[Rfam]
A member of the RNA family "Eukaryotic large subunit ribosomal RNA" from Gracilariopsis chorda, 497 nucleotides of a longer RNA.
RNA sequence: CCCCCCGAAGUUUCUCUCAGGAUAGCGGGCUGACAUGACGUUGUUUUGUGCGGUAAAGCGAAUGAUUAGCGCAUUUGGGGGCGUGCAGCCUUCUGGCGAUUCUCAAACUUUAAAUGCGCAAGCUGGCGCCGCUGCUUAAUUGAGCGGUUUUAGCUAGAAAAAACGUCAGCCCCGUGGGCCACUUUUGGUAAGCAGAACUGGCGAUGCGGGAUGAACCGAAAGCGUAGUUAAGGCGUCAAAUUGUCCGCUUAUAGAUCCCACAAAAGGCGUUGGUUCAUCGAGACAGCAGGACGGUGGCCAUGGAAGUCGGAAUCCGCUAAGGAGUGUGUAACAACUCACCUGCCGAAUGAGGUAGCCCUGAAAAUGGAUGACGCUUAAGCGGGCAGCCGAUACUACGCCGUCGAUUUUAGUGAAAAACAAAUCGAUGAGUAGGGGGGCGUGGUGGUCGUGUCGAAGCAUUGCGUGCGAACGCGUGUGAAACGGCCACUAGUGCAGAU
Numbered sequence: 001c002c003c004c005c006c007g008a009a010g011u012u013u014c015u016c017u018c019a020g021g022a023u024a025g026c027g028g029g030c031u032g033a034c035a036u037g038a039c040g041u042u043g044u045u046u047u048g049u050g051c052g053g054u055a056a057a058g059c060g061a062a063u064g065a066u067u068a069g070c071g072c073a074u075u076u077g078g079g080g081g082c083g084u085g086c087a088g089c090c091u092u093c094u095g096g097c098g099a100u101u102c103u104c105a106a107a108c109u110u111u112a113a114a115u116g117c118g119c120a121a122g123c124u125g126g127c128g129c130c131g132c133u134g135c136u137u138a139a140u141u142g143a144g145c146g147g148u149u150u151u152a153g154c155u156a157g158a159a160a161a162a163a164c165g166u167c168a169g170c171c172c173c174g175u176g177g178g179c180c181a182c183u184u185u186u187g188g189u190a191a192g193c194a195g196a197a198c199u200g201g202c203g204a205u206g207c208g209g210g211a212u213g214a215a216c217c218g219a220a221a222g223c224g225u226a227g228u229u230a231a232g233g234c235g236u237c238a239a240a241u242u243g244u245c246c247g248c249u250u251a252u253a254g255a256u257c258c259c260a261c262a263a264a265a266g267g268c269g270u271u272g273g274u275u276c277a278u279c280g281a282g283a284c285a286g287c288a289g290g291a292c293g294g295u296g297g298c299c300a301u302g303g304a305a306g307u308c309g310g311a312a313u314c315c316g317c318u319a320a321g322g323a324g325u326g327u328g329u330a331a332c333a334a335c336u337c338a339c340c341u342g343c344c345g346a347a348u349g350a351g352g353u354a355g356c357c358c359u360g361a362a363a364a365u366g367g368a369u370g371a372c373g374c375u376u377a378a379g380c381g382g383g384c385a386g387c388c389g390a391u392a393c394u395a396c397g398c399c400g401u402c403g404a405u406u407u408u409a410g411u412g413a414a415a416a417a418c419a420a421a422u423c424g425a426u427g428a429g430u431a432g433g434g435g436g437g438c439g440u441g442g443u444g445g446u447c448g449u450g451u452c453g454a455a456g457c458a459u460u461g462c463g464u465g466c467g468a469a470c471g472c473g474u475g476u477g478a479a480a481c482g483g484c485c486a487c488u489a490g491u492g493c494a495g496a497u
Stems, first nucleotide, its partner, number of pairs: 001437006011024001013022003027172007045122007056111001057109002063105003068100001070098003075095001077093004082088001125151002128148006178202004183197005207218003222398005228392001232388003241385001243384001246381003265359003269356004274351005286343005292316003298310002317321001322337001326335002399427009438492001440489010456476002462471003
Rfam 15.1 lists 107,465 matches to the family in 2,616 species.